[Rfam]
The family of this 74-nucleotide RNA sequence from Megalops atlanticus is "mir-216 microRNA precursor family". NCBI's taxonomy places the organism under Eukaryota, Euteleostomi, Actinopterygii, Teleostei, Megalops. Rfam 15.1 lists 1,667 matches to the family in 655 species. Rfam links the family to the GO terms miRNA-mediated post-transcriptional gene silencing and RISC complex.

RNA sequence: AGCCUGGGUAAUCUCUGCAGGCAACUGUGAUGUGUUGCUUUACCUCACAUUAACCUGGAGAGAUUCUGCAGUCU
Numbered sequence: 001a002g003c004c005u006g007g008g009u010a011a012u013c014u015c016u017g018c019a020g021g022c023a024a025c026u027g028u029g030a031u032g033u034g035u036u037g038c039u040u041u042a043c044c045u046c047a048c049a050u051u052a053a054c055c056u057g058g059a060g061a062g063a064u065u066c067u068g069c070a071g072u073c074u
Stems, first nucleotide, its partner, number of pairs: 004071003010065007020056002024051001026049005
Its Rfam clan is "mir-216 clan".